[Rfam]
RNA: mir-156 microRNA precursor family
Organism: Dioscorea zingiberensis
RNA sequence: GUGACAGAAGAGAGUGAGCACAUAUGGUGCUUUCAAGCAUGGGAGUUCAUGCAUGAAGCUAUCUGUGCUCACUACUCUUUCUGUCAC
Numbered sequence: 001g002u003g004a005c006a007g008a009a010g011a012g013a014g015u016g017a018g019c020a021c022a023u024a025u026g027g028u029g030c031u032u033u034c035a036a037g038c039a040u041g042g043g044a045g046u047u048c049a050u051g052c053a054u055g056a057a058g059c060u061a062u063c064u065g066u067g068c069u070c071a072c073u074a075c076u077c078u079u080u081c082u083g084u085c086a087c
Stems, first nucleotide, its partner, number of pairs: 001087009010077003013073009024062002
Dot-bracket structure: (((((((((((((((((((((..((...................................))..))))))))).))).)))))))))